[Rfam]
RNA sequence: UUGAAGCUCCAUCUACAAAUGGAUAAGAUUUCGGUCUUUGUGUAUACGAGUUUUUGAAAAUAACGGAGCAAUACCAAUUUCUUGCAAAGGGUCGGUAUUGCUCCGUUAU
Numbered sequence: 001u002u003g004a005a006g007c008u009c010c011a012u013c014u015a016c017a018a019a020u021g022g023a024u025a026a027g028a029u030u031u032c033g034g035u036c037u038u039u040g041u042g043u044a045u046a047c048g049a050g051u052u053u054u055u056g057a058a059a060a061u062a063a064c065g066g067a068g069c070a071a072u073a074c075c076a077a078u079u080u081c082u083u084g085c086a087a088a089g090g091g092u093c094g095g096u097a098u099u100g101c102u103c104c105g106u107u108a109u
Stems, first nucleotide, its partner, number of pairs: 008023005062107013076092001
The family of this 109-nucleotide sequence from Anacardium occidentale is "Plastid-psbA-1 3UTR RNA".
Plastid psbA-1 is a non-coding RNA (ncRNA) present in plastids. It was identified in inverted repeat sequences in the 3 prime untranslate region (3UTR) of photosystem II quinone-binding protein (psbA).
The sequence is in the family's curated seed alignment.
The family's consensus secondary structure was predicted with LocARNA.